[Rfam]
RNA sequence: GAUGCAAAAGGCAAACCCGGUGUGAACCGGGGACGCAAAGCCACGGGGCCCCUGCGGGUCAGCCGGGCUACCAACC
Numbered sequence: 001g002a003u004g005c006a007a008a009a010g011g012c013a014a015a016c017c018c019g020g021u022g023u024g025a026a027c028c029g030g031g032g033a034c035g036c037a038a039a040g041c042c043a044c045g046g047g048g049c050c051c052c053u054g055c056g057g058g059u060c061a062g063c064c065g066g067g068c069u070a071c072c073a074a075c076c
Stems, first nucleotide, its partner, number of pairs: 001076001003073002011036002016031006034062001039069004044065003047060003
RNA: c-di-GMP-I-GGC riboswitch aptamer
Organism: Arthrobacter sp. Bz4